RNA sequence: UCUGCAAGAGACGAGAUAACUGACAGGGACAUCUGCACCGCCACAGUGGGGAUUGAUGACUACGUCAUGAUGGGAAUCUCUCUGAUAUGCCGA
Numbered sequence: 001u002c003u004g005c006a007a008g009a010g011a012c013g014a015g016a017u018a019a020c021u022g023a024c025a026g027g028g029a030c031a032u033c034u035g036c037a038c039c040g041c042c043a044c045a046g047u048g049g050g051g052a053u054u055g056a057u058g059a060c061u062a063c064g065u066c067a068u069g070a071u072g073g074g075a076a077u078c079u080c081u082c083u084g085a086u087a088u089g090c091c092g093a
Stems, first nucleotide, its partner, number of pairs: 002092001004090003